This 107-nucleotide RNA from Mucilaginibacter sp. belongs to the Rfam family "SAM riboswitch aptamer (S box leader)". Rfam links the family to the GO term regulation of gene expression.

Nucleotides: 107
Base pairs, nucleotide, nucleotide: 003105004104005103006102007101008100013042014041015040016039017038021031022030023029026080027079028078043073044072045071046070048069049068050065051064052063053062077099082096083095084094085093086092087091
Number, partner (000 for none) and nucleotide at each position: 001000u002000a003105a004104u005103u006102a007101u008100c009000c010000a011000g012000a013042a014041a015040g016039a017038c018000u019000g020000a021031g022030g023029g024000a025000a026080a027079g028078g029023c030022c031021c032000u033000g034000u035000g036000a037000u038017g039016u040015c041014u042013u043073a044072g045071c046070a047000a048069c049068c050065u051064g052063u053062a054000c055000g056000g057000c058000u059000u060000g061000u062053u063052a064051u065050a066000a067000a068049g069048g070046u071045g072044c073043u074000a075000a076000u077099u078028c079027c080026u081000a082096u083095c084094u085093g086092c087091a088000a089000a090000a091087u092086g093085c094084a095083g096082a097000a098000a099077a100008g101007a102006u103005a104004a105003u106000a107000u
Pairs were carried over by alignment from the consensus structure, which is taken from published work. It scores 86 bits against the family's covariance model.